[Rfam]
RNA sequence: GGGAAACGAGCAGGGGGCUGGGGCAGUGAGCCAACCCAAGCCCUAGGAAGCAGAGGCUCG
Numbered sequence: 001g002g003g004a005a006a007c008g009a010g011c012a013g014g015g016g017g018c019u020g021g022g023g024c025a026g027u028g029a030g031c032c033a034a035c036c037c038a039a040g041c042c043c044u045a046g047g048a049a050g051c052a053g054a055g056g057c058u059c060g
Base pairs, nucleotide, nucleotide: 014044015043016042017041018040019039021037022036023035028059029058030057031056032055

This 60-nucleotide RNA from Erinaceus europaeus belongs to the Rfam family "Ma3 gene ribosomal frameshift signal". Pairs were carried over by alignment from the consensus structure, which is taken from published work. Taxonomically the source falls in Erinaceus (Eukaryota, Vertebrata, Euteleostomi, Erinaceidae). The sequence is in the family's curated seed alignment.